[Rfam]
RNA: Y RNA
RNA sequence: GGCUGGUCUGAGAGCGGUGCUGUUUAUGACUAACUGAUCACAACCAGUACAGAUUUCUUUGUUCCUUCUCCAUUCCCACUGCUUCACUUGACUAGCCUGCC
Numbered sequence: 001g002g003c004u005g006g007u008c009u010g011a012g013a014g015c016g017g018u019g020c021u022g023u024u025u026a027u028g029a030c031u032a033a034c035u036g037a038u039c040a041c042a043a044c045c046a047g048u049a050c051a052g053a054u055u056u057c058u059u060u061g062u063u064c065c066u067u068c069u070c071c072a073u074u075c076c077c078a079c080u081g082c083u084u085c086a087c088u089u090g091a092c093u094a095g096c097c098u099g100c101c
Stems, first nucleotide, its partner, number of pairs: 001097008010089002014085001016080004022075001028063003032059002
Dot-bracket structure: ((((((((.((..(.((((..(.....(((.((........................)).)))...........).))))....)..))))))))))....